Description
Rfam assigns this 88-nucleotide sequence from Asparagus officinalis to the family "Small nucleolar RNA SNORD25". Pairs were carried over by alignment from the consensus structure, which was predicted with PFOLD. Lineage of the source: Eukaryota > Embryophyta > Spermatophyta > Asparagales > Asparagus. The literature on the family includes a 2001 paper in Nucleic Acids Res by Qu et al., "Identification of 10 novel snoRNA gene clusters from Arabidopsis thaliana". Rfam 15.1 lists 985 matches to the family in 241 species.
RNA sequence: GGCAACGGUGAUGAUCCUACUACAGACCUGUAAUGAUUUAUGCGGAAAUGAUCGCAGAAUCAAAGAACAUCUAAGGGGCUGAGUUGUC
Numbered sequence: 001g002g003c004a005a006c007g008g009u010g011a012u013g014a015u016c017c018u019a020c021u022a023c024a025g026a027c028c029u030g031u032a033a034u035g036a037u038u039u040a041u042g043c044g045g046a047a048a049u050g051a052u053c054g055c056a057g058a059a060u061c062a063a064a065g066a067a068c069a070u071c072u073a074a075g076g077g078g079c080u081g082a083g084u085u086g087u088c
Stems, first nucleotide, its partner, number of pairs: 002087005